[Rfam]
RNA sequence: UAAUCUCAAAUCAAGUAAGAAGACCUGCUGAAUUGAAGCAUCUAACUAAGCAGAGGAAAAGAAAAUAACAAUGAUUCCCUUAGUAACGGCGAGUGAAGUGGGAGAAGCCCAAGCCAAAAUCACUGUAAAGUGAGUUGUAGUGUGAAGACUGGUGUGAAGGUGAAGAACCAUCGAAUUUGAUUGGAAAGUCAAGUCAUAGAAGGUGAAAACCCUGUAAGAUGCCUUACUCAUCAAAACAACACCAGUUCGUGGAGUCGAGUUGUUUGGGAUUGCAACUCGAAGUUGGUGGUAAACAUCAUCAAAGGCUAAAUAGUGUCAAGAGACCGAUAGCGAACAAGUACCGUGAGGGAAAGAUGAAAAGAACUUUGAAAAAAGAGUGAAAUAGUACUUGAAAUCGUGGUUAGGUUAAGCGCAGAGGCUGAGUGGUAUUGUAGAACUUGUGUCCUUUACAGUUGUGAAGGGUUUAAGUUGUAUGAUAGGUGUAUGGGGUGUUUACUUACCCAAAUCAUUGAGUGAAACAGCACUCACAACACAAAAUCAACCUCUUCGUCCCGUCUUGAAACACGG
Numbered sequence: 001u002a003a004u005c006u007c008a009a010a011u012c013a014a015g016u017a018a019g020a021a022g023a024c025c026u027g028c029u030g031a032a033u034u035g036a037a038g039c040a041u042c043u044a045a046c047u048a049a050g051c052a053g054a055g056g057a058a059a060a061g062a063a064a065a066u067a068a069c070a071a072u073g074a075u076u077c078c079c080u081u082a083g084u085a086a087c088g089g090c091g092a093g094u095g096a097a098g099u100g101g102g103a104g105a106a107g108c109c110c111a112a113g114c115c116a117a118a119a120u121c122a123c124u125g126u127a128a129a130g131u132g133a134g135u136u137g138u139a140g141u142g143u144g145a146a147g148a149c150u151g152g153u154g155u156g157a158a159g160g161u162g163a164a165g166a167a168c169c170a171u172c173g174a175a176u177u178u179g180a181u182u183g184g185a186a187a188g189u190c191a192a193g194u195c196a197u198a199g200a201a202g203g204u205g206a207a208a209a210c211c212c213u214g215u216a217a218g219a220u221g222c223c224u225u226a227c228u229c230a231u232c233a234a235a236a237c238a239a240c241a242c243c244a245g246u247u248c249g250u251g252g253a254g255u256c257g258a259g260u261u262g263u264u265u266g267g268g269a270u271u272g273c274a275a276c277u278c279g280a281a282g283u284u285g286g287u288g289g290u291a292a293a294c295a296u297c298a299u300c301a302a303a304g305g306c307u308a309a310a311u312a313g314u315g316u317c318a319a320g321a322g323a324c325c326g327a328u329a330g331c332g333a334a335c336a337a338g339u340a341c342c343g344u345g346a347g348g349g350a351a352a353g354a355u356g357a358a359a360a361g362a363a364c365u366u367u368g369a370a371a372a373a374a375g376a377g378u379g380a381a382a383u384a385g386u387a388c389u390u391g392a393a394a395u396c397g398u399g400g401u402u403a404g405g406u407u408a409a410g411c412g413c414a415g416a417g418g419c420u421g422a423g424u425g426g427u428a429u430u431g432u433a434g435a436a437c438u439u440g441u442g443u444c445c446u447u448u449a450c451a452g453u454u455g456u457g458a459a460g461g462g463u464u465u466a467a468g469u470u471g472u473a474u475g476a477u478a479g480g481u482g483u484a485u486g487g488g489g490u491g492u493u494u495a496c497u498u499a500c501c502c503a504a505a506u507c508a509u510u511g512a513g514u515g516a517a518a519c520a521g522c523a524c525u526c527a528c529a530a531c532a533c534a535a536a537a538u539c540a541a542c543c544u545c546u547u548c549g550u551c552c553c554g555u556c557u558u559g560a561a562a563c564a565c566g567g
Base pairs, nucleotide, nucleotide: 024055025053026052027051028050029049035042036041065072066071076103077102078101079100086094087093106307107306108305109304113141114140116138118136119135120133121132122131123130124129147248148247149245150244151243152242153241154240155239159232160231161230162229163228166224169221170220171219172218176192178191179190180189181188195199202212203211257278258277259276260275261274262273263272284301285300286299287298288297341348342347364375365374366373367372411549412548414546415545416544417543418542420540421539422538427479430478431474432473485529486528488526489525552567553566554565555564
The family of this 567-nucleotide part of an RNA from Blastocystis hominis is "Eukaryotic large subunit ribosomal RNA".
The base pairs follow the family's consensus structure, which is taken from published work.